[Rfam]
Rfam assigns this 74-nucleotide sequence from Crocodylus porosus to the family "Mammalian CPEB3 ribozyme". A search with the family's covariance model found it, with a score of 50 bits. The family's consensus secondary structure is taken from published work.
Nucleotides: 074
Stems, first nucleotide, its partner, number of pairs: 014047004019042001022074004027069002029041003051063004
Number, partner (000 for none) and nucleotide at each position: 001000u002000c003000a004000g005000c006000a007000u008000c009000u010000c011000a012000u013000a014047g015046g016045g017044g018000c019042c020000a021000u022074a023073g024072c025071a026000a027069a028068a029041g030040u031039g032000u033000u034000c035000a036000c037000a038000u039031c040030a041029u042019g043000a044017c045016c046015c047014c048000u049000g050000u051063c052062a053061g054060g055000c056000a057000a058000u059000a060054c061053u062052u063051g064000u065000g066000a067000a068028u069027u070000c071025u072024g073023c074022u